[Rfam]
RNA sequence: GAUGAAUGCUAAAGACUGGAAGACAUGGGAAUUAAAAACCAUGUCUUGAAAAGAACAGUAGGAU
Numbered sequence: 001g002a003u004g005a006a007u008g009c010u011a012a013a014g015a016c017u018g019g020a021a022g023a024c025a026u027g028g029g030a031a032u033u034a035a036a037a038a039c040c041a042u043g044u045c046u047u048g049a050a051a052a053g054a055a056c057a058g059u060a061g062g063a064u
Base pairs, nucleotide, nucleotide: 007060008059009058010057017050020047021046022045023044024043025042026041027040028039
RNA: mir-9412 microRNA precursor family